[Rfam]
RNA sequence: GACUAUUAGAGGCAAAUUUUACGAAAGUAAAAGACGCAAAGCUACGGGCCUAAAACAUUUAUUUGUCAUGGCGGCCGGGUUGCCAGG
Numbered sequence: 001g002a003c004u005a006u007u008a009g010a011g012g013c014a015a016a017u018u019u020u021a022c023g024a025a026a027g028u029a030a031a032a033g034a035c036g037c038a039a040a041g042c043u044a045c046g047g048g049c050c051u052a053a054a055a056c057a058u059u060u061a062u063u064u065g066u067c068a069u070g071g072c073g074g075c076c077g078g079g080u081u082g083c084c085a086g087g
Stems, first nucleotide, its partner, number of pairs: 012037002017032006040081004045077003048072003055066003